[Rfam]
RNA sequence: AGACACUCCCAUCAGGAGAGUGGUACCCCAGCCAGGAGCGACUUUGCCAUACUCGGAAUUU
Numbered sequence: 001a002g003a004c005a006c007u008c009c010c011a012u013c014a015g016g017a018g019a020g021u022g023g024u025a026c027c028c029c030a031g032c033c034a035g036g037a038g039c040g041a042c043u044u045u046g047c048c049a050u051a052c053u054c055g056g057a058a059u060u061u
Base pairs, nucleotide, nucleotide: 017045018044019043020042021041023039024038026036027035
RNA: Plastid-psbN 5UTR RNA
Organism: Leptolyngbya sp. FACHB-261